[Rfam]
RNA sequence: UCACCUCAACCCGUAGAUCCGAACUUGUGCAAACAUUUCUAUGAAAGUAUCACAAGCUCGCCUCUAGGGGAAUCGGUUGC
Numbered sequence: 001u002c003a004c005c006u007c008a009a010c011c012c013g014u015a016g017a018u019c020c021g022a023a024c025u026u027g028u029g030c031a032a033a034c035a036u037u038u039c040u041a042u043g044a045a046a047g048u049a050u051c052a053c054a055a056g057c058u059c060g061c062c063u064c065u066a067g068g069g070g071a072a073u074c075g076g077u078u079g080c
Stems, first nucleotide, its partner, number of pairs: 003077003010070003015065003020060003024056006
mir-10 microRNA precursor family: an 80-nucleotide RNA from Armadillidium nasatum. The literature on the family includes a 2001 paper in Cell by Ambros, "microRNAs: tiny regulators with great potential". Pairs were carried over by alignment from the consensus structure, which was predicted with PFOLD.